[Rfam]
This 102-nucleotide RNA from Clostridioides difficile belongs to the Rfam family "Purine riboswitch aptamer".
On this family, see Mandal et al., Cell 2003: "Riboswitches Control Fundamental Biochemical Pathways in Bacillus subtilis and Other Bacteria".
The family's consensus secondary structure is taken from published work.
Lineage of the source: Bacteria > Bacillota > Clostridia > Peptostreptococcales > Clostridioides.

RNA sequence: GAAAAACAAAUAGAAAAUGUUCAUAUAAUAUUAGUAAUACGGUCUAAUAGUUUCUACAAACUCACCUUAAAUGGGUUUUCUAUGAAUAGAAUGUCAACUCUG
Numbered sequence: 001g002a003a004a005a006a007c008a009a010a011u012a013g014a015a016a017a018u019g020u021u022c023a024u025a026u027a028a029u030a031u032u033a034g035u036a037a038u039a040c041g042g043u044c045u046a047a048u049a050g051u052u053u054c055u056a057c058a059a060a061c062u063c064a065c066c067u068u069a070a071a072u073g074g075g076u077u078u079u080c081u082a083u084g085a086a087u088a089g090a091a092u093g094u095c096a097a098c099u100c101u102g
Stems, first nucleotide, its partner, number of pairs: 018088008029049006058078007